TPP riboswitch aptamer (THI element): a 108-nucleotide sequence from Blautia obeum. Its family is annotated with thiamine pyrophosphate binding in the Gene Ontology. The family has 115 seed sequences and 16,130 matches in Rfam 15.1.

Nucleotides: 108
Base pairs, nucleotide, nucleotide: 008094011060012059013058014057017032018031019030020029021028039054040053041052042051043050064089065088066087067086070083071082072081073080
Number, partner (000 for none) and nucleotide at each position: 001000a002000u003000u004000a005000c006000a007000a008094a009000a010000c011060a012059g013058g014057g015000g016000a017032g018031c019030u020029g021028g022000c023000u024000g025000a026000a027000g028021c029020c030019g031018g032017c033000u034000g035000a036000g037000a038000g039054g040053a041052a042051a043050c044000u045000g046000a047000u048000u049000g050043g051042u052041u053040u054039c055000g056000a057014c058013c059012c060011u061000u062000a063000a064089c065088c066087u067086g068000a069000u070083u071082u072081g073080g074000a075000u076000a077000a078000u079000g080073c081072c082071a083070a084000c085000g086067u087066a088065g089064g090000g091000a092000a093000a094008u095000a096000c097000c098000a099000g100000a101000c102000a103000c104000a105000u106000u107000g108000a